RNA: sok antitoxin (CssrC)
Organism: Providencia rettgeri
RNA sequence: GGGUGCUUGGAUCAUUUUGGUUCAAGCAUUAGUGAGAGCCAAAAAGACGAAAGCCCCGAAUUUAGAUGUUAAUCUUAAUCCGAGGCAGUCUCAAACACACAACAAUUUGAUUCUGUCUCCUUUUAGAAAAGGAGUCAAGAGGAAUG
Numbered sequence: 001g002g003g004u005g006c007u008u009g010g011a012u013c014a015u016u017u018u019g020g021u022u023c024a025a026g027c028a029u030u031a032g033u034g035a036g037a038g039c040c041a042a043a044a045a046g047a048c049g050a051a052a053g054c055c056c057c058g059a060a061u062u063u064a065g066a067u068g069u070u071a072a073u074c075u076u077a078a079u080c081c082g083a084g085g086c087a088g089u090c091u092c093a094a095a096c097a098c099a100c101a102a103c104a105a106u107u108u109g110a111u112u113c114u115g116u117c118u119c120c121u122u123u124u125a126g127a128a129a130a131g132g133a134g135u136c137a138a139g140a141g142g143a144a145u146g
Stems, first nucleotide, its partner, number of pairs: 001057003005054004012047002015044009026033002058081001060079002064073001082119007091110005123142002